A member of the RNA family "Bacillaceae-1 RNA" from Amphibacillus marinus, 140 nucleotides long. The family's RNA type in Rfam is small RNA. The organism belongs to Amphibacillus, within Bacteria. Rfam 15.1 lists 5,721 matches to the family in 247 species. The match comes from Rfam's covariance-model search (35 bits).
[Rfam]
RNA sequence: AAGUGGGGAUGUGAGACUAAACCCAUCACGUCAUGGGACUGAGACUGGGAUUGCGCUUACUCAUCCCACCGAAGUGAUUUGCGCCUACUCGCCCCACCAAAAUACUUGGGACUACGUCUAACUGACCUACAUCCUGUAGG
Numbered sequence: 001a002a003g004u005g006g007g008g009a010u011g012u013g014a015g016a017c018u019a020a021a022c023c024c025a026u027c028a029c030g031u032c033a034u035g036g037g038a039c040u041g042a043g044a045c046u047g048g049g050a051u052u053g054c055g056c057u058u059a060c061u062c063a064u065c066c067c068a069c070c071g072a073a074g075u076g077a078u079u080u081g082c083g084c085c086u087a088c089u090c091g092c093c094c095c096a097c098c099a100a101a102a103u104a105c106u107u108g109g110g111a112c113u114a115c116g117u118c119u120a121a122c123u124g125a126c127c128u129a130c131a132u133c134c135u136g137u138a139g140g
Stems, first nucleotide, its partner, number of pairs: 011122002014119004026111002029108001126140005